[Rfam]
A member of the RNA family "tRNA" from Phaseolus vulgaris, 83 nucleotides long. By type it is a transfer RNA. Rfam's curators put it in the seed alignment. Rfam links the family to the GO term triplet codon-amino acid adaptor activity. From the family's description: Transfer RNA (tRNA) molecules are approximately 80 nucleotides in length.
RNA sequence: GGGAGAGUGGCCGAGUGGUCAAAAGCGACAGACUGUAAAUCUGUUGAAGUUUUUCUACGUAGGUUCGAAUCCUGCCUCUCCCA
Numbered sequence: 001g002g003g004a005g006a007g008u009g010g011c012c013g014a015g016u017g018g019u020c021a022a023a024a025g026c027g028a029c030a031g032a033c034u035g036u037a038a039a040u041c042u043g044u045u046g047a048a049g050u051u052u053u054u055c056u057a058c059g060u061a062g063g064u065u066c067g068a069a070u071c072c073u074g075c076c077u078c079u080c081c082c083a
Base pairs, nucleotide, nucleotide: 001082002081003080004079005078006077007076010026011025028044029043030042031041032040059075060074061073062072063071
Dot-bracket structure: (((((((..((.............)).(((((.......)))))..............(((((.......)))))))))))).